[Rfam]
RNA sequence: GAUCUCGCUGGCGAUGAGGCUCGCCUGAAACCGUCGGUUCACGACUGAUAGCCUCUGCCCCUGA
Numbered sequence: 001g002a003u004c005u006c007g008c009u010g011g012c013g014a015u016g017a018g019g020c021u022c023g024c025c026u027g028a029a030a031c032c033g034u035c036g037g038u039u040c041a042c043g044a045c046u047g048a049u050a051g052c053c054u055c056u057g058c059c060c061c062u063g064a
Base pairs, nucleotide, nucleotide: 010025011024012023013022016055017054018053019052020051021050033045034044035043036042